[Rfam]
RNA sequence: CGAAGCUGCGCGGGAGAGACCGGCCCCCACCCCGGGCCGGCGCCGAAGGAGCAACUCUUCCCCGGAACCUCACAGGCACCCGGACCGCGCGGACGAG
Numbered sequence: 001c002g003a004a005g006c007u008g009c010g011c012g013g014g015a016g017a018g019a020c021c022g023g024c025c026c027c028c029a030c031c032c033c034g035g036g037c038c039g040g041c042g043c044c045g046a047a048g049g050a051g052c053a054a055c056u057c058u059u060c061c062c063c064g065g066a067a068c069c070u071c072a073c074a075g076g077c078a079c080c081c082g083g084a085c086c087g088c089g090c091g092g093a094c095g096a097g
Stems, first nucleotide, its partner, number of pairs: 006092008020040006042077003045073001049071003055065002

The family of this 97-nucleotide RNA sequence from Amycolatopsis rhizosphaerae is "Glycine riboswitch aptamer". It scores 54 bits against the family's covariance model. Rfam 15.1 lists 9,425 matches to the family in 5,228 species. The organism belongs to Amycolatopsis, within Bacteria.